[Rfam]
RNA: Small nucleolar RNA SNORD11B
Organism: Menidia menidia
RNA sequence: UGUCAGUGGUGAUGAUGACGACAGUCGUCGUUCUCCUGAAACAGUACAUGUGGGUUCUCAGUCACUACCUCAUCUGAACUGUCA
Number, nucleotide and partner (000 for none) at each position: 001u000002g083003u000004c081005a080006g079007u078008g000009g000010u000011g000012a000013u000014g000015a000016u000017g000018a000019c000020g000021a000022c000023a000024g000025u000026c000027g000028u000029c000030g000031u000032u000033c000034u000035c000036c000037u000038g000039a000040a000041a000042c000043a000044g000045u000046a000047c000048a000049u000050g000051u000052g000053g000054g000055u000056u000057c000058u000059c000060a000061g000062u000063c000064a000065c000066u000067a000068c000069c000070u000071c000072a000073u000074c000075u000076g000077a000078a007079c006080u005081g004082u000083c002084a000